[Rfam]
RNA sequence: UUGACGGUGAAGGUCCAGACGUCAUCCGACUCCACCACCGCCUGGUCGCCGAAGUGGUCGCCGUCCGCCAGCACGUCCAGGGUGACGGGCGCGCCAUACGGGCCUGCGCGGAGCUUGCGCGCCUUGCCGUGGGCCAGCAGGAACACGUGCUCGGCGGGAGCGCCCGCCUCGACGAUGACGUCGCCCGCCUUGUACUCCGCCUGGGUGAACUGGCUGGCCAGGGCCGCAAUCACCUCGUCGUCGCCGCUCAGGCCCCGCAGCAGCGGCAGCUUGAGCAGCUCCUGCGGGAUGACCUGCACCUUCGCGCCGAUGUUGCUGAACACGAGGCGGUCAUCCGCCACCGCGUAGCUCAGCCGACGGUUGACCCGGUACGUGCCGCCCGUCACCUCUACCCAGGGCAGCAUGCGCAGCAGCCACCGCGGGGUGAUGCCCUGCAUCUGCGGGACGGUCUUCGUCGUCGUCGCGAGUUGACGCGCCGCGGCCGUGCCCAGGCUCAGCCGCGGGGUGUCGUCG
Numbered sequence: 001u002u003g004a005c006g007g008u009g010a011a012g013g014u015c016c017a018g019a020c021g022u023c024a025u026c027c028g029a030c031u032c033c034a035c036c037a038c039c040g041c042c043u044g045g046u047c048g049c050c051g052a053a054g055u056g057g058u059c060g061c062c063g064u065c066c067g068c069c070a071g072c073a074c075g076u077c078c079a080g081g082g083u084g085a086c087g088g089g090c091g092c093g094c095c096a097u098a099c100g101g102g103c104c105u106g107c108g109c110g111g112a113g114c115u116u117g118c119g120c121g122c123c124u125u126g127c128c129g130u131g132g133g134c135c136a137g138c139a140g141g142a143a144c145a146c147g148u149g150c151u152c153g154g155c156g157g158g159a160g161c162g163c164c165c166g167c168c169u170c171g172a173c174g175a176u177g178a179c180g181u182c183g184c185c186c187g188c189c190u191u192g193u194a195c196u197c198c199g200c201c202u203g204g205g206u207g208a209a210c211u212g213g214c215u216g217g218c219c220a221g222g223g224c225c226g227c228a229a230u231c232a233c234c235u236c237g238u239c240g241u242c243g244c245c246g247c248u249c250a251g252g253c254c255c256c257g258c259a260g261c262a263g264c265g266g267c268a269g270c271u272u273g274a275g276c277a278g279c280u281c282c283u284g285c286g287g288g289a290u291g292a293c294c295u296g297c298a299c300c301u302u303c304g305c306g307c308c309g310a311u312g313u314u315g316c317u318g319a320a321c322a323c324g325a326g327g328c329g330g331u332c333a334u335c336c337g338c339c340a341c342c343g344c345g346u347a348g349c350u351c352a353g354c355c356g357a358c359g360g361u362u363g364a365c366c367c368g369g370u371a372c373g374u375g376c377c378g379c380c381c382g383u384c385a386c387c388u389c390u391a392c393c394c395a396g397g398g399c400a401g402c403a404u405g406c407g408c409a410g411c412a413g414c415c416a417c418c419g420c421g422g423g424g425u426g427a428u429g430c431c432c433u434g435c436a437u438c439u440g441c442g443g444g445a446c447g448g449u450c451u452u453c454g455u456c457g458u459c460g461u462c463g464c465g466a467g468u469u470g471a472c473g474c475g476c477c478g479c480g481g482c483c484g485u486g487c488c489c490a491g492g493c494u495c496a497g498c499c500g501c502g503g504g505g506u507g508u509c510g511u512c513g
Stems, first nucleotide, its partner, number of pairs: 006393004011388002014385001018335002021328002025325002031319002036315002039312002042309001045308001047306003051302002054233002057230002060227002063224002065111004075103001077102002080099001082097003086093001118221001122217002127212001129210002132206001134204004140198002143196001148192002153189006161177001165174002234296001237293006247286001249284004259280003264273002336345003354382001356380001358378003364374002394434007402426003406421003410418001440479004446473002449470001451467005480512002483507003487503002489500001491498001

Record summary
Rfam assigns this 513-nucleotide sequence from Myxococcus xanthus to the family "Saccharopolyspora sRNA 350". The literature on the family includes a 2013 paper in PLoS One by Liu et al., "Prediction and characterization of small non-coding RNAs related to secondary metabolites in Saccharopolyspora erythraea". The family has 2 seed sequences and 1,170 matches in Rfam 15.1. By type it is an antisense RNA. A search with the family's covariance model found it, with a score of 181 bits.